[Rfam]
RNA: Bacterial small signal recognition particle RNA
Organism: Dactylosporangium vinaceum
RNA sequence: CAAGCCGCUCGUGCGGCGACACCUCAUGAACCUCCCCAGGGCCGGAAGGCAGCAAGGAUAAGUGAGCUCUGUCGGGUGCACGAGCGGUGUCUUC
Numbered sequence: 001c002a003a004g005c006c007g008c009u010c011g012u013g014c015g016g017c018g019a020c021a022c023c024u025c026a027u028g029a030a031c032c033u034c035c036c037c038a039g040g041g042c043c044g045g046a047a048g049g050c051a052g053c054a055a056g057g058a059u060a061a062g063u064g065a066g067c068u069c070u071g072u073c074g075g076g077u078g079c080a081c082g083a084g085c086g087g088u089g090u091c092u093u094c
Stems, first nucleotide, its partner, number of pairs: 004088010014076001017074005023066005033058003041050003